[Rfam]
The family of this 91-nucleotide RNA from Aquilegia coerulea is "MIR2275 microRNA precursor family".
The organism belongs to Aquilegia, within Eukaryota.
Gene Ontology terms of the family: miRNA-mediated post-transcriptional gene silencing and RISC complex.
The match comes from Rfam's covariance-model search (75 bits).
RNA sequence: GAUUUGAAAGUGAGAGUUGGAUGGAACUAGAUCCUUUUGUCCUCCAUGGUAGAAAAGGGUUUAGUUUCCUCCAAUAUCUCACCUUCAAUAG
Numbered sequence: 001g002a003u004u005u006g007a008a009a010g011u012g013a014g015a016g017u018u019g020g021a022u023g024g025a026a027c028u029a030g031a032u033c034c035u036u037u038u039g040u041c042c043u044c045c046a047u048g049g050u051a052g053a054a055a056a057g058g059g060u061u062u063a064g065u066u067u068c069c070u071c072c073a074a075u076a077u078c079u080c081a082c083c084u085u086c087a088a089u090a091g
Stems, first nucleotide, its partner, number of pairs: 004088005011081004016075006023068008032059002